[Rfam]
The family of this 172-nucleotide RNA from Firmicutes bacterium CAG:94 is "Lysine riboswitch aptamer".
About the family: Riboswitches are metabolite binding domains within certain messenger RNAs that serve as precision sensors for their corresponding targets.
For this family Rfam cites "Riboswitches Control Fundamental Biochemical Pathways in Bacillus subtilis and Other Bacteria" (Mandal et al., Cell, 2003).
The source organism's lineage runs through Bacteria, Bacillati and Bacillota.
The base pairs follow the family's consensus structure, which is taken from published work.

RNA sequence: AAACCAAAUAGAGGCGCGGCUUUCAAAAGUAGCGGGAUGGAGGUUGCCGGAACUGAUGAAAUCUUGUGAAAGGGUGGGCUGCCGAAGGAGGAUGCCUGGCAGGUAUCUUCCUGGUUGCAACAGCAAACAGCUUUGCGACUGUCAUCACUUGUGAUGGAGUGCUAUUGAGACA
Dot-bracket structure: ......(((((....(((((((.(.......(((((((......................)))))))......).)))))))...((((((((((((...))))))))))))(((((((..(((.....))).))))))).((((((....))))))....)))))......
Numbered sequence: 001a002a003a004c005c006a007a008a009u010a011g012a013g014g015c016g017c018g019g020c021u022u023u024c025a026a027a028a029g030u031a032g033c034g035g036g037a038u039g040g041a042g043g044u045u046g047c048c049g050g051a052a053c054u055g056a057u058g059a060a061a062u063c064u065u066g067u068g069a070a071a072g073g074g075u076g077g078g079c080u081g082c083c084g085a086a087g088g089a090g091g092a093u094g095c096c097u098g099g100c101a102g103g104u105a106u107c108u109u110c111c112u113g114g115u116u117g118c119a120a121c122a123g124c125a126a127a128c129a130g131c132u133u134u135g136c137g138a139c140u141g142u143c144a145u146c147a148c149u150u151g152u153g154a155u156g157g158a159g160u161g162c163u164a165u166u167g168a169g170a171c172a
Stems, first nucleotide, its partner, number of pairs: 007166005016082007024074001032067007086112012113140007122132003142157006